[Rfam]
RNA sequence: GGAGGCCUGUGAUGAUUGAAAUAUUUGCCUACAUUGUCUGAUUGAUCUAGUUGAAGAAACCAUUUAUACUAAGUCUGAGGCCACC
Numbered sequence: 001g002g003a004g005g006c007c008u009g010u011g012a013u014g015a016u017u018g019a020a021a022u023a024u025u026u027g028c029c030u031a032c033a034u035u036g037u038c039u040g041a042u043u044g045a046u047c048u049a050g051u052u053g054a055a056g057a058a059a060c061c062a063u064u065u066a067u068a069c070u071a072a073g074u075c076u077g078a079g080g081c082c083a084c085c
Stems, first nucleotide, its partner, number of pairs: 001085002004082004
RNA: Small nucleolar RNA SNORD34